[Rfam]
Background:
A member of the RNA family "SAM (S-adenosyl methionine) riboswitch aptamer" from Kocuria dechangensis, 115 nucleotides long. Its family is annotated with regulation of gene expression and S-adenosylmethionine metabolic process in the Gene Ontology. Pairs were carried over by alignment from the consensus structure, which is taken from published work. From the family's description: SAM-IV is a mRNA element that regulates gene expression via direct sensing of S-adenosylmethionine (SAM or AdoMet). SAM-IV riboswitches share conserved nucleotide positions with the previously described SAM-I riboswitches sequence analysis and molecular recognition experiments suggest that SAM-I and SAM-IV riboswitches share similar ligand binding sites, but have different scaffolds.
RNA sequence: GAUCAUGAGACCCGGCGCGAAGCUCUGGCUGGCCGGGCGGCAACCCUCUCCCGUAGCGGGGUGCCCCAGAUGAGGAUCGGGCCGCAGCGCACACCGCCUGCGGCAAGUACGGCGC
Numbered sequence: 001g002a003u004c005a006u007g008a009g010a011c012c013c014g015g016c017g018c019g020a021a022g023c024u025c026u027g028g029c030u031g032g033c034c035g036g037g038c039g040g041c042a043a044c045c046c047u048c049u050c051c052c053g054u055a056g057c058g059g060g061g062u063g064c065c066c067c068a069g070a071u072g073a074g075g076a077u078c079g080g081g082c083c084g085c086a087g088c089g090c091a092c093a094c095c096g097c098c099u100g101c102g103g104c105a106a107g108u109a110c111g112g113c114g115c
Stems, first nucleotide, its partner, number of pairs: 001078004009038001011037006021030002039065003044061003048056002081104007